RNA sequence: AUGUAUUAAUGAUGGCUUGCGUCUAAACUCUCCUGAGGAUGCAGGCUUGAUGCUUAUACAC
Numbered sequence: 001a002u003g004u005a006u007u008a009a010u011g012a013u014g015g016c017u018u019g020c021g022u023c024u025a026a027a028c029u030c031u032c033c034u035g036a037g038g039a040u041g042c043a044g045g046c047u048u049g050a051u052g053c054u055u056a057u058a059c060a061c
Stems, first nucleotide, its partner, number of pairs: 003061002014047010028037003
Dot-bracket structure: ..((.........((((((((((....(((....)))))))))))))............))